[Rfam]
Rfam assigns this 155-nucleotide RNA from Capsicum annuum to the family "Small nucleolar RNA snoR2/U65". For this family Rfam cites "Localization and processing from a polycistronic precursor of novel snoRNAs in maize" (Shaw et al., J Cell Sci, 1998). A search with the family's covariance model found it, with a score of 90 bits. The family's RNA type in Rfam is H/ACA-box small nucleolar RNA.
RNA sequence: AGUCUGAUGCCACGUCGAUGGUAGCAAAAUGUCCGAUGACCAGCGAUGCUAUGAUUGAACCACUAACAAGUUUUAAUUAACGUUUCACAUUUUGAUAGGAAUCUGUGUAUGGAUUUUCAAUUCCUUCACAAGAGCCGUUUCAUGCGAUCACAUUC
Numbered sequence: 001a002g003u004c005u006g007a008u009g010c011c012a013c014g015u016c017g018a019u020g021g022u023a024g025c026a027a028a029a030u031g032u033c034c035g036a037u038g039a040c041c042a043g044c045g046a047u048g049c050u051a052u053g054a055u056u057g058a059a060c061c062a063c064u065a066a067c068a069a070g071u072u073u074u075a076a077u078u079a080a081c082g083u084u085u086c087a088c089a090u091u092u093u094g095a096u097a098g099g100a101a102u103c104u105g106u107g108u109a110u111g112g113a114u115u116u117u118c119a120a121u122u123c124c125u126u127c128a129c130a131a132g133a134g135c136c137g138u139u140u141c142a143u144g145c146g147a148u149c150a151c152a153u154u155c
Stems, first nucleotide, its partner, number of pairs: 002060002005057004009052001013048005020041003024034001026032001085147002088144002098136002103132002105129001107127001109125001111123001
Dot-bracket structure: .((.(((((...(((((..(((.(.(.....).)....)))..)))))...).)))).))........................((.((........((...(((.(.(.(...........).).).).))..))......)).))........